[Rfam]
RNA: RNA Staph. aureus D
RNA sequence: AUUUGCUAUAAUGUGUAUAACUUCUUAAUAAGAGAAGUUAUCUCCUUUGUGUUGUUUAUAGUAACAAAACAAAUUUUGCUCGAAGUACUGUGACAGUACCUAGUCCUUACCGUUACAAGUACAUUAAUAUUCAUUUCCCAUAAAAACCAAGUAUAUAGAGUGUCUCCUCACCCUACAUACUUGGUUUUU
Numbered sequence: 001a002u003u004u005g006c007u008a009u010a011a012u013g014u015g016u017a018u019a020a021c022u023u024c025u026u027a028a029u030a031a032g033a034g035a036a037g038u039u040a041u042c043u044c045c046u047u048u049g050u051g052u053u054g055u056u057u058a059u060a061g062u063a064a065c066a067a068a069a070c071a072a073a074u075u076u077u078g079c080u081c082g083a084a085g086u087a088c089u090g091u092g093a094c095a096g097u098a099c100c101u102a103g104u105c106c107u108u109a110c111c112g113u114u115a116c117a118a119g120u121a122c123a124u125u126a127a128u129a130u131u132c133a134u135u136u137c138c139c140a141u142a143a144a145a146a147c148c149a150a151g152u153a154u155a156u157a158g159a160g161u162g163u164c165u166c167c168u169c170a171c172c173c174u175a176c177a178u179a180c181u182u183g184g185u186u187u188u189u
Stems, first nucleotide, its partner, number of pairs: 018040009046073005052067005085122004089117006096110003147184008156175003